Rfam assigns this 102-nucleotide RNA sequence from Neobacillus cucumis to the family "Purine riboswitch aptamer".
Pairs were carried over by alignment from the consensus structure, which is taken from published work.
RNA sequence: CUGAGGAAAACAAAAUAACCUCAUAUAAUCAUGGCAAUAGGGGCCAUAAGUUUCUACCCGGUGACCGUAAAACACUGGACUAUGAGGGAAAGCAUUUUUUUA
Numbered sequence: 001c002u003g004a005g006g007a008a009a010a011c012a013a014a015a016u017a018a019c020c021u022c023a024u025a026u027a028a029u030c031a032u033g034g035c036a037a038u039a040g041g042g043g044c045c046a047u048a049a050g051u052u053u054c055u056a057c058c059c060g061g062u063g064a065c066c067g068u069a070a071a072a073c074a075c076u077g078g079a080c081u082a083u084g085a086g087g088g089a090a091a092g093c094a095u096u097u098u099u100u101u102a
Stems, first nucleotide, its partner, number of pairs: 019087007029049001031047005058078006